Shown here is an 85-nucleotide sequence from Rhamnella rubrinervis, a member of the family "Small nucleolar RNA R16". It scores 66 bits against the family's covariance model. NCBI's taxonomy places the organism under Eukaryota, Euphyllophyta, Magnoliopsida, Rhamnaceae, Rhamnella. The family's consensus secondary structure was predicted with PFOLD.
RNA sequence: GCAGGCAAGUGAUGAAUAAAAAAAUACUUAUACUACACACUGAAUUAACUGUAGACAAAUUCUCUGCUUAUUAUCUGAUGUCUGC
Numbered sequence: 001g002c003a004g005g006c007a008a009g010u011g012a013u014g015a016a017u018a019a020a021a022a023a024a025u026a027c028u029u030a031u032a033c034u035a036c037a038c039a040c041u042g043a044a045u046u047a048a049c050u051g052u053a054g055a056c057a058a059a060u061u062c063u064c065u066g067c068u069u070a071u072u073a074u075c076u077g078a079u080g081u082c083u084g085c
Stems, first nucleotide, its partner, number of pairs: 003083005